Source information: The record is a 92-nucleotide RNA from Actinidia chinensis, which matches "Small nucleolar RNA snoR26" in Rfam. It is annotated as a C/D-box small nucleolar RNA. A search with the family's covariance model found it, with a score of 87 bits. On this family, see Brown et al., RNA 2001: "Multiple snoRNA gene clusters from Arabidopsis". Gene Ontology terms of the family: RNA processing and nucleolus.
[Rfam]
RNA sequence: UAGGCAUCCGUGAUGAGUUGAUUCCUUUUGUUAUCCUUGCACUUUGAUUACGAAUGAAGAAAUCUAUGGGGACAAUUUACUCUGAGAUGCUU
Numbered sequence: 001u002a003g004g005c006a007u008c009c010g011u012g013a014u015g016a017g018u019u020g021a022u023u024c025c026u027u028u029u030g031u032u033a034u035c036c037u038u039g040c041a042c043u044u045u046g047a048u049u050a051c052g053a054a055u056g057a058a059g060a061a062a063u064c065u066a067u068g069g070g071g072a073c074a075a076u077u078u079a080c081u082c083u084g085a086g087a088u089g090c091u092u
Base pairs, nucleotide, nucleotide: 002092003091004090005089006088007087008086